[Rfam]
RNA sequence: AUGCACGUUGCAAAACCCCGGGCUUAUCUUAGUUAUUAUUUUUAUUCAAUGAAGAAUAAAGCCCCAAUGCUAGUGCUAGAUUUACUGACGUUGAGUGUUGCAAUUGAGCUUUGUACUUAUAUUUUCCCAUAGCUUAAAUUGUGUCAGAGUAACGUCUACAUCU
Numbered sequence: 001a002u003g004c005a006c007g008u009u010g011c012a013a014a015a016c017c018c019c020g021g022g023c024u025u026a027u028c029u030u031a032g033u034u035a036u037u038a039u040u041u042u043u044a045u046u047c048a049a050u051g052a053a054g055a056a057u058a059a060a061g062c063c064c065c066a067a068u069g070c071u072a073g074u075g076c077u078a079g080a081u082u083u084a085c086u087g088a089c090g091u092u093g094a095g096u097g098u099u100g101c102a103a104u105u106g107a108g109c110u111u112u113g114u115a116c117u118u119a120u121a122u123u124u125u126c127c128c129a130u131a132g133c134u135u136a137a138a139u140u141g142u143g144u145c146a147g148a149g150u151a152a153c154g155u156c157u158a159c160a161u162c163u
Stems, first nucleotide, its partner, number of pairs: 003076004010070002020064005025058002027055003087156007096146002099143006108133003
The family of this 163-nucleotide RNA sequence from Coptis chinensis is "small nucleolar RNA snoR134". The literature on the family includes a 2009 paper in Nucleic Acids Res by Chen and Wu, "Mining small RNA sequencing data: a new approach to identify small nucleolar RNAs in Arabidopsis". It is annotated as an H/ACA-box small nucleolar RNA. The family's consensus secondary structure was predicted with RNAalifold.